[Rfam]
RNA sequence: ACAAUAAAAUUAGCGCCAGAGCCUUUUGGGUCUUAGCAAGGCUGACGAGGAGGAAAGUGAUCGAAAAUUCGGCGGAUGCUUUCUCGCGGAACCGGACGUGUAACUUGCUGUAAAAGCUUCGGGUAACUGGAAAACAAAUACAGCAUAACCGGUAAU
Numbered sequence: 001a002c003a004a005u006a007a008a009a010u011u012a013g014c015g016c017c018a019g020a021g022c023c024u025u026u027u028g029g030g031u032c033u034u035a036g037c038a039a040g041g042c043u044g045a046c047g048a049g050g051a052g053g054a055a056a057g058u059g060a061u062c063g064a065a066a067a068u069u070c071g072g073c074g075g076a077u078g079c080u081u082u083c084u085c086g087c088g089g090a091a092c093c094g095g096a097c098g099u100g101u102a103a104c105u106u107g108c109u110g111u112a113a114a115a116g117c118u119u120c121g122g123g124u125a126a127c128u129g130g131a132a133a134a135c136a137a138a139u140a141c142a143g144c145a146u147a148a149c150c151g152g153u154a155a156u
Stems, first nucleotide, its partner, number of pairs: 020043006027036001029034001052084005061072004085100004106145005118131005